The family of this 45-nucleotide RNA from Nocardioides sp. Iso805N is "L31-Actinobacteria ribosomal protein leader". It is one of the family's seed sequences. It is annotated as a cis-regulatory leader.
[Rfam]
RNA sequence: UCGGUUCCGGUUCACGUCUCGCAUCCGCGUAGACGACCCGGCGCC
Numbered sequence: 001u002c003g004g005u006u007c008c009g010g011u012u013c014a015c016g017u018c019u020c021g022c023a024u025c026c027g028c029g030u031a032g033a034c035g036a037c038c039c040g041g042c043g044c045c
Base pairs, nucleotide, nucleotide: 003045004044005043007041008040009039010038015035016034017033018032019031020029021028022027